[Rfam]
RNA sequence: ACAGACAAUGGCAAACCACUCGAAAGGGUGGGACGCAAAGCUUCCGGUCUAAGGAUUGAGUUCUAUGAUAGCGGGGCCACCUAAG
Numbered sequence: 001a002c003a004g005a006c007a008a009u010g011g012c013a014a015a016c017c018a019c020u021c022g023a024a025a026g027g028g029u030g031g032g033a034c035g036c037a038a039a040g041c042u043u044c045c046g047g048u049c050u051a052a053g054g055a056u057u058g059a060g061u062u063c064u065a066u067g068a069u070a071g072c073g074g075g076g077c078c079a080c081c082u083a084a085g
Stems, first nucleotide, its partner, number of pairs: 003082002011036002016031006034071001040077003044074003047069003
Background: Shown here is an 85-nucleotide RNA sequence from Paraferrimonas sedimenticola, a member of the family "c-di-GMP-I-GGC riboswitch aptamer". The family's consensus secondary structure is taken from published work. Rfam links the family to the GO term cyclic-di-GMP binding. Taxonomically the source falls in Paraferrimonas (Bacteria, Pseudomonadota, Gammaproteobacteria, Ferrimonadaceae). The family is grouped with related families in Rfam's "c-di-GMP_I riboswitch clan".